[Rfam]
RNA sequence: ACAGCUCAAAGGCCGCGAGGCUCACACCGCACAAGACGUCUUGCACGUCUUUUUUUGUGAGCGGGCCAAGGUCUGAGUAUACUUGUCCUCAUUCAUCGGUUCUAGCAGGAUCAAGCCUUAACGGGCUCUGCAGCGUACCAGUGAUUACCACGACCAAUGGCCCAUCAUAACCCAGAGAUCUUAUGUUCUACCUGCCUAGCUGGUGGGUGUGUGCAUAGGGGAGGGGGGCCAGGAUCAGAUGAAAUGCAUUGCGAGGAUUGGGCACACUGCGGACCGACGCAACUCCCCCACAGACCUGUCCGUUAUCGCGUCGAGCAUCUCUUGAUUGAACAAGAGUAGGACCGGUCUCUCCUUGUCAGACUUGGGUGCUCAUCGUCGGCUGUCUUGCCUCCGAUUGAAAUGGAGGGACGUACGAGGCGGACAUCGGGGUCUAUGGGGUGAUGUGCUGAGGGUUUGUGUCCUUGAGUGCACUUCGCGGCUCGUGGAUUUUUUCUUCUGCCUUCGGGGUGGAGAUGCCAUGAAACUCGAUUCAGACUACUCUUGGGCUGU
Numbered sequence: 001a002c003a004g005c006u007c008a009a010a011g012g013c014c015g016c017g018a019g020g021c022u023c024a025c026a027c028c029g030c031a032c033a034a035g036a037c038g039u040c041u042u043g044c045a046c047g048u049c050u051u052u053u054u055u056u057g058u059g060a061g062c063g064g065g066c067c068a069a070g071g072u073c074u075g076a077g078u079a080u081a082c083u084u085g086u087c088c089u090c091a092u093u094c095a096u097c098g099g100u101u102c103u104a105g106c107a108g109g110a111u112c113a114a115g116c117c118u119u120a121a122c123g124g125g126c127u128c129u130g131c132a133g134c135g136u137a138c139c140a141g142u143g144a145u146u147a148c149c150a151c152g153a154c155c156a157a158u159g160g161c162c163c164a165u166c167a168u169a170a171c172c173c174a175g176a177g178a179u180c181u182u183a184u185g186u187u188c189u190a191c192c193u194g195c196c197u198a199g200c201u202g203g204u205g206g207g208u209g210u211g212u213g214c215a216u217a218g219g220g221g222a223g224g225g226g227g228g229c230c231a232g233g234a235u236c237a238g239a240u241g242a243a244a245u246g247c248a249u250u251g252c253g254a255g256g257a258u259u260g261g262g263c264a265c266a267c268u269g270c271g272g273a274c275c276g277a278c279g280c281a282a283c284u285c286c287c288c289c290a291c292a293g294a295c296c297u298g299u300c301c302g303u304u305a306u307c308g309c310g311u312c313g314a315g316c317a318u319c320u321c322u323u324g325a326u327u328g329a330a331c332a333a334g335a336g337u338a339g340g341a342c343c344g345g346u347c348u349c350u351c352c353u354u355g356u357c358a359g360a361c362u363u364g365g366g367u368g369c370u371c372a373u374c375g376u377c378g379g380c381u382g383u384c385u386u387g388c389c390u391c392c393g394a395u396u397g398a399a400a401u402g403g404a405g406g407g408a409c410g411u412a413c414g415a416g417g418c419g420g421a422c423a424u425c426g427g428g429g430u431c432u433a434u435g436g437g438g439u440g441a442u443g444u445g446c447u448g449a450g451g452g453u454u455u456g457u458g459u460c461c462u463u464g465a466g467u468g469c470a471c472u473u474c475g476c477g478g479c480u481c482g483u484g485g486a487u488u489u490u491u492u493c494u495u496c497u498g499c500c501u502u503c504g505g506g507g508u509g510g511a512g513a514u515g516c517c518a519u520g521a522a523a524c525u526c527g528a529u530u531c532a533g534a535c536u537a538c539u540c541u542u543g544g545g546c547u548g549u
Base pairs, nucleotide, nucleotide: 001549002548003547004546007543008542009541012479013478014477015476016475017474018473020062021061022060023059024058034050035049036048037047038046039045073533074532075531076530077529085274086273087272098112099111100110101109102108114127115126116125117124118123129271130270131269132268133267135265151256480521481520482519483518484517485516
Nuclear RNase P: a 549-nucleotide sequence from Bondarzewia mesenterica. A search with the family's covariance model found it, with a score of 54 bits. The family's RNA type in Rfam is ribozyme. The family is grouped with related families in Rfam's "RNaseP clan". Pairs were carried over by alignment from the consensus structure, which is taken from published work.